mir-210 microRNA precursor family: a 90-nucleotide RNA sequence from Takifugu rubripes.
RNA sequence: UCUAAAAGCAGGUGAGCCACUGACUAACGCACAUUGCGCCAGUUGACAGUUCCACUGUGCGUGUGACAGCGGCUAACCUGGUUUUGGGAA
Numbered sequence: 001u002c003u004a005a006a007a008g009c010a011g012g013u014g015a016g017c018c019a020c021u022g023a024c025u026a027a028c029g030c031a032c033a034u035u036g037c038g039c040c041a042g043u044u045g046a047c048a049g050u051u052c053c054a055c056u057g058u059g060c061g062u063g064u065g066a067c068a069g070c071g072g073c074u075a076a077c078c079u080g081g082u083u084u085u086g087g088g089a090a
Stems, first nucleotide, its partner, number of pairs: 005084003009080004015074004020069003024065001025063002028061006035054002
Rfam links the family to the GO terms RISC complex and miRNA-mediated post-transcriptional gene silencing. The source organism's lineage runs through Eukaryota, Craniata, Euteleosteomorpha, Eupercaria and Takifugu.